[Rfam]
RNA sequence: UGCUCGAUGAUGAUUGUCUCCGACGAUUGUCUCUGACAAUAUGAACGCACCUUUCACCGGCACUGAGAGCA
Numbered sequence: 001u002g003c004u005c006g007a008u009g010a011u012g013a014u015u016g017u018c019u020c021c022g023a024c025g026a027u028u029g030u031c032u033c034u035g036a037c038a039a040u041a042u043g044a045a046c047g048c049a050c051c052u053u054u055c056a057c058c059g060g061c062a063c064u065g066a067g068a069g070c071a
Stems, first nucleotide, its partner, number of pairs: 001071005